[Rfam]
Shown here is a 109-nucleotide RNA sequence from Jonesia denitrificans, a member of the family "ZMP/ZTP riboswitch aptamer (pfl RNA motif)". On this family, see Jones and Ferre-D'Amare, Nat Struct Mol Biol 2015: "Recognition of the bacterial alarmone ZMP through long-distance association of two RNA subdomains". The family's consensus secondary structure is taken from published work. NCBI's taxonomy places the organism under Bacteria, Actinomycetota, Actinomycetes, Jonesia, Jonesia denitrificans. It scores 54 bits against the family's covariance model.

RNA sequence: GUGAGGUGUCACAACUGGCGUAUCCCUGACUGUGGGUCAGGUGUGGUGGGGAACCACCGGGGAGUGACACAGCAGCUUCGACCAAGGGUCGUCCGCCUGGGCCCGGUCA
Numbered sequence: 001g002u003g004a005g006g007u008g009u010c011a012c013a014a015c016u017g018g019c020g021u022a023u024c025c026c027u028g029a030c031u032g033u034g035g036g037u038c039a040g041g042u043g044u045g046g047u048g049g050g051g052a053a054c055c056a057c058c059g060g061g062g063a064g065u066g067a068c069a070c071a072g073c074a075g076c077u078u079c080g081a082c083c084a085a086g087g088g089u090c091g092u093c094c095g096c097c098u099g100g101g102c103c104c105g106g107u108c109a
Base pairs, nucleotide, nucleotide: 003073006070007069008068009067010066011065012064015061016060017097018096019095020094046057047056048055049054086104087103088102089101090100